[Rfam]
RNA sequence: CUUUACGUUAAUUUAAAACACACAUAUAUCGACACUGCGUUCGGGGUGUUUAAGCAAAACCCAGUUUUGUCUAAAUCGAACAAAGGGAUAUAUGGAGGCCUAAC
Numbered sequence: 001c002u003u004u005a006c007g008u009u010a011a012u013u014u015a016a017a018a019c020a021c022a023c024a025u026a027u028a029u030c031g032a033c034a035c036u037g038c039g040u041u042c043g044g045g046g047u048g049u050u051u052a053a054g055c056a057a058a059a060c061c062c063a064g065u066u067u068u069g070u071c072u073a074a075a076u077c078g079a080a081c082a083a084a085g086g087g088a089u090a091u092a093u094g095g096a097g098g099c100c101u102a103a104c
Base pairs, nucleotide, nucleotide: 023094024093025092026091027090028089029088030087035085036084039081040080041079042078043077048076049075050074051073052072
RNA: t44 RNA